[Rfam]
RNA: RNase MRP
Organism: Purpureocillium takamizusanense
RNA sequence: CCCUCGCUCGACAAAUCGCAAUUCGAAGCUCACACACGGAGACACCUCCAUUUGGUGGCGUCUCGCGAACACGCUUUGGGAGAAAGUCCCCGGACGACUCCUCUCGGGGAGCUUGCGGAAACGCGCCGCCAUAAAAGCACUGCGGCUGACCUCUGUGCCCUUGGCCCUCUUGCGGCUCGCGGCCCUGUCCUCCGCCACAUCUGCCUCCUUCGAGUCCUCGCCUAGUCCGCUCUGCGCGUGUCUGGACCCCACGGAUGAAGAUAUGAGUCCGAGCCGGUCGCGUGUUGGCGGAACUUGGUUGUGGGCGAGUGUUUGCGGAUGGCGGGCAGCCGUCGCUGUCGCGAGAGUGGUGUCGGGGGCAGAGGACUAGUUGUCGAGGUCCAUAGUUAUGCGAUUGCCUGGUGCAUGCUGGGUUACUCGAUGGGGCUUAUUCUUGAGGCGAGG
Number, nucleotide and partner (000 for none) at each position: 001c000002c444003c443004u442005c441006g440007c439008u437009c436010g435011a434012c000013a000014a396015a395016u394017c393018g392019c391020a000021a000022u000023u080024c078025g077026a076027a075028g074029c073030u000031c000032a000033c000034a000035c000036a000037c000038g000039g064040a063041g062042a061043c060044a000045c058046c000047u000048c000049c000050a000051u000052u000053u000054g000055g000056u000057g000058g045059c000060g043061u042062c041063u040064c039065g000066c000067g000068a000069a000070c000071a000072c000073g029074c028075u027076u026077u025078g024079g000080g023081a000082g000083a000084a429085a428086g427087u000088c426089c425090c424091c423092g000093g000094a000095c000096g000097a000098c000099u000100c000101c000102u000103c000104u000105c000106g000107g000108g000109g000110a000111g000112c000113u000114u125115g124116c123117g122118g000119a000120a000121a000122c117123g116124c115125g114126c000127c000128g000129c000130c000131a000132u000133a000134a000135a000136a000137g000138c000139a000140c000141u000142g000143c000144g000145g000146c000147u000148g000149a000150c000151c000152u000153c000154u000155g000156u000157g000158c000159c000160c000161u000162u000163g000164g000165c000166c000167c000168u000169c000170u000171u000172g000173c000174g000175g000176c000177u000178c000179g000180c000181g000182g000183c000184c000185c000186u000187g000188u000189c000190c000191u000192c000193c000194g000195c000196c000197a000198c000199a000200u000201c000202u000203g000204c000205c000206u000207c000208c000209u000210u000211c000212g000213a000214g000215u000216c000217c000218u000219c000220g000221c000222c000223u000224a368225g367226u366227c000228c000229g000230c364231u363232c362233u361234g360235c359236g000237c000238g000239u355240g354241u000242c000243u000244g000245g000246a000247c000248c000249c350250c349251a348252c347253g000254g000255a000256u000257g000258a000259a000260g000261a000262u000263a000264u000265g000266a000267g000268u000269c000270c000271g000272a000273g000274c000275c000276g000277g000278u000279c000280g000281c000282g000283u000284g000285u000286u000287g000288g000289c000290g000291g000292a000293a000294c000295u000296u000297g000298g000299u000300u000301g000302u000303g000304g000305g000306c000307g000308a000309g000310u000311g000312u000313u000314u000315g000316c000317g000318g000319a000320u000321g000322g000323c000324g000325g000326g000327c000328a000329g000330c000331c000332g000333u000334c343335g342336c341337u000338g000339u000340c000341g336342c335343g334344a000345g000346a000347g252348u251349g250350g249351u000352g000353u000354c240355g239356g000357g000358g000359g235360c234361a233362g232363a231364g230365g000366a226367c225368u224369a000370g000371u000372u000373g000374u000375c000376g000377a000378g000379g000380u000381c000382c000383a000384u000385a000386g000387u000388u000389a000390u000391g019392c018393g017394a016395u015396u014397g000398c413399c412400u411401g410402g409403u408404g000405c000406a000407u000408g403409c402410u401411g400412g399413g398414u000415u000416a000417c000418u000419c000420g000421a000422u000423g091424g090425g089426g088427c086428u085429u084430a000431u000432u000433c000434u011435u010436g009437a008438g000439g007440c006441g005442a004443g003444g002